Rfam assigns this 253-nucleotide RNA sequence from an uncultured Geobacteraceae bacterium to the family "permuted transfer-messenger RNA". It is one of the family's seed sequences. Rfam describes the family as follows. Bacterial tmRNA, also known as 10Sa RNA or SsrA, is named for its dual tRNA and mRNA-like properties. It is annotated as a non-coding RNA gene.

[Rfam]
RNA sequence: UGUUGUAAUCCCUUCGAAGCGAAGGCAUGUUGGACGGGGGUUCGAUUCCCCCCGGCUCCACCAAAAGUAUUCUUGGGUUAAAACCCCACCGUGCGUAACAGCAAGGGCUCCGAGGCAAGCUAGAAUACUUUUGAUGGGGCCGACCAGGUUUCGACAGCGUGAGAUAGUAGAGACGGCAACACGGUAGAUGACGACCGUUAAUCGCAUAAAACUUUUAAAUGCAAACGAUAGCAUUUUCGCUAUGGCUGCCUAA
Numbered sequence: 001u002g003u004u005g006u007a008a009u010c011c012c013u014u015c016g017a018a019g020c021g022a023a024g025g026c027a028u029g030u031u032g033g034a035c036g037g038g039g040g041u042u043c044g045a046u047u048c049c050c051c052c053c054g055g056c057u058c059c060a061c062c063a064a065a066a067g068u069a070u071u072c073u074u075g076g077g078u079u080a081a082a083a084c085c086c087c088a089c090c091g092u093g094c095g096u097a098a099c100a101g102c103a104a105g106g107g108c109u110c111c112g113a114g115g116c117a118a119g120c121u122a123g124a125a126u127a128c129u130u131u132u133g134a135u136g137g138g139g140c141c142g143a144c145c146a147g148g149u150u151u152c153g154a155c156a157g158c159g160u161g162a163g164a165u166a167g168u169a170g171a172g173a174c175g176g177c178a179a180c181a182c183g184g185u186a187g188a189u190g191a192c193g194a195c196c197g198u199u200a201a202u203c204g205c206a207u208a209a210a211a212c213u214u215u216u217a218a219a220u221g222c223a224a225a226c227g228a229u230a231g232c233a234u235u236u237u238c239g240c241u242a243u244g245g246c247u248g249c250c251u252a253a
Stems, first nucleotide, its partner, number of pairs: 001181005014171002017168001026161003030157003036052005053142007182197004